[Rfam]
Small nucleolar RNA snoR138: a 145-nucleotide RNA from Panicum miliaceum.
On this family, see Chen and Wu, Nucleic Acids Res 2009: "Mining small RNA sequencing data: a new approach to identify small nucleolar RNAs in Arabidopsis".
It is annotated as an H/ACA-box small nucleolar RNA.
Rfam links the family to the GO terms nucleolus and RNA processing.
The family's consensus secondary structure was predicted with mfold.
The family has 7 seed sequences and 308 matches in Rfam 15.1.
Nucleotides: 145
Stems, first nucleotide, its partner, number of pairs: 003062005009057001015050005021044002024041001026039001074138006081122003084117003088114001091111006
Number, partner (000 for none) and nucleotide at each position: 001000a002000u003062u004061g005060c006059u007058u008000c009057u010000u011000g012000a013000a014000u015050a016049a017048c018047c019046g020000g021044u022043u023000g024041c025000a026039g027000a028000c029000a030000a031000u032000a033000u034000c035000u036000g037000g038000u039026u040000c041024g042000c043022a044021g045000g046019c047018g048017g049016u050015u051000c052000a053000g054000a055000c056000a057009g058007g059006g060005g061004c062003a063000u064000a065000g066000a067000a068000c069000g070000a071000a072000u073000c074138u075137g076136a077135a078134u079133c080000c081122c082121c083120a084117c085116g086115a087000g088114g089000g090000a091111a092110g093109g094108g095107u096106u097000a098000u099000u100000u101000c102000c103000a104000u105000u106096g107095a108094c109093c110092c111091u112000u113000u114088c115086u116085c117084g118000u119000u120083u121082g122081g123000u124000u125000u126000u127000c128000a129000u130000a131000u132000a133079g134078a135077u136076u137075u138074a139000c140000a141000u142000a143000u144000a145000u